[Rfam]
RNA sequence: AUUGCAUGUUCUUCAAACGGAGUCAUCGAUGUGUUCUUGUACAAUGCUAAGAACAAUCUUUGACUUUGGUUUGAAGAAAUAUAUGCAGU
Dot-bracket structure: ((((((((((((((((((.((((((..((..((((((((........)))))))).))..))))))..)))))))))...)))))))))